The family of this 114-nucleotide RNA sequence from Actinoallomurus bryophytorum is "SAM (S-adenosyl methionine) riboswitch aptamer". Its Rfam clan is "SAM clan". Lineage of the source: Bacteria > Actinomycetota > Streptosporangiales > Thermomonosporaceae > Actinoallomurus. A search with the family's covariance model found it, with a score of 117 bits. Rfam 15.1 lists 2,360 matches to the family in 1,305 species.

[Rfam]
RNA sequence: GGUCACGAGCGCCAGCGUCAAGCCCCGGCUAGCUGGCCGGCAACCCUCCGUCCGUGGCGGGGUGCCCCGGGUGAUGACCAGGUCCGGCACGAUCGUGCCGGGCAAGCGCGGACC
Numbered sequence: 001g002g003u004c005a006c007g008a009g010c011g012c013c014a015g016c017g018u019c020a021a022g023c024c025c026c027g028g029c030u031a032g033c034u035g036g037c038c039g040g041c042a043a044c045c046c047u048c049c050g051u052c053c054g055u056g057g058c059g060g061g062g063u064g065c066c067c068c069g070g071g072u073g074a075u076g077a078c079c080a081g082g083u084c085c086g087g088c089a090c091g092a093u094c095g096u097g098c099c100g101g102g103c104a105a106g107c108g109c110g111g112a113c114c
Stems, first nucleotide, its partner, number of pairs: 001079004009038001011037006021030002039066003044062003048057002082103009